[Rfam]
RNA sequence: GUUGGCUAUGGAGACAUGAGACCCAUUACCGUUGGAGGGAAAAUAGUCGGCUCCUUGUGUGCUAUUGCUGGCGUUUUGACCAUUGCCUUGCCGGUCCCCGUUAUCGUGUCCAAC
Number, nucleotide and partner (000 for none) at each position: 001g114002u113003u000004g111005g110006c000007u108008a107009u106010g105011g104012a000013g102014a101015c100016a000017u000018g097019a000020g095021a000022c000023c000024c000025a000026u000027u000028a000029c000030c000031g000032u000033u000034g000035g000036a000037g077038g076039g075040a074041a000042a000043a000044u000045a000046g000047u000048c000049g063050g062051c061052u000053c000054c000055u000056u000057g000058u000059g000060u000061g051062c050063u049064a000065u000066u000067g000068c000069u000070g000071g000072c000073g000074u040075u039076u038077u037078g000079a000080c000081c000082a000083u000084u000085g000086c000087c000088u000089u000090g000091c000092c000093g000094g000095u020096c000097c018098c000099c000100g015101u014102u013103a000104u011105c010106g009107u008108g007109u000110c005111c004112a000113a002114c001
The family of this 114-nucleotide RNA from Lepisosteus oculatus is "Potassium channel RNA editing signal". From the family's description: This family represents a group of sequences related to the human potassium channel Kv1.1 hairpin element which directs the efficient modification of an adenosine to inosine by an adenosine deaminase acting on RNA (ADAR). The ADAR modification causes an isoleucine/valine recoding event which lies in the ion-conducting pore of the potassium channel. It is annotated as a cis-regulatory element. Taxonomically the source falls in Lepisosteus (Eukaryota, Metazoa, Eumetazoa, Deuterostomia). Pairs were carried over by alignment from the consensus structure, which is taken from published work.